[Rfam]
Rfam assigns this 85-nucleotide sequence from Nannospalax galili to the family "mir-877 microRNA precursor family". Rfam 15.1 lists 186 matches to the family in 115 species. The source organism's lineage runs through Eukaryota, Bilateria, Gnathostomata, Mammalia and Nannospalax.
RNA sequence: GUAGAGGAGAUGAUGCAGGGGACAUAGGCUAUGACCUGGGGAUCCCUGGGCCCUCAGACAUGUGUCCUCUUCUCCCCCCUCCCAG
Number, nucleotide and partner (000 for none) at each position: 001g000002u000003a000004g081005a080006g079007g078008a000009g076010a000011u000012g075013a000014u000015g072016c000017a070018g069019g068020g067021g066022a065023c064024a063025u062026a061027g000028g059029c000030u000031a000032u000033g000034a000035c000036c057037u056038g055039g054040g053041g052042a000043u050044c049045c000046c000047u000048g000049g044050g043051c000052c041053c040054u039055c038056a037057g036058a000059c028060a000061u026062g025063u024064g023065u022066c021067c020068u019069c018070u017071u000072c015073u000074c000075c012076c009077c000078c007079c006080u005081c004082c000083c000084a000085g000